mir-8799 microRNA precursor family: a 92-nucleotide RNA from Nyctereutes procyonoides. Rfam 15.1 lists 20,638 matches to the family in 5 species.
RNA sequence: AAGGGGAGGGCAGGAUCCAGGGUUGUGUCCCUUGGCGCCCUGGGCUCCGGGGCCUGCGCUGCUGGGAUCACGCUCCAGGGCCGCGGCUCCUG
Numbered sequence: 001a002a003g004g005g006g007a008g009g010g011c012a013g014g015a016u017c018c019a020g021g022g023u024u025g026u027g028u029c030c031c032u033u034g035g036c037g038c039c040c041u042g043g044g045c046u047c048c049g050g051g052g053c054c055u056g057c058g059c060u061g062c063u064g065g066g067a068u069c070a071c072g073c074u075c076c077a078g079g080g081c082c083g084c085g086g087c088u089c090c091u092g
Stems, first nucleotide, its partner, number of pairs: 002091005010084002013082002017079002020076003024072004028066003031061001034060005042054001044053003

The organism belongs to Nyctereutes, within Eukaryota. Clan: mir-8791 microRNA precursor clan. Pairs were carried over by alignment from the consensus structure, which was predicted with RNAalifold. Gene Ontology terms of the family: miRNA-mediated post-transcriptional gene silencing and RISC complex.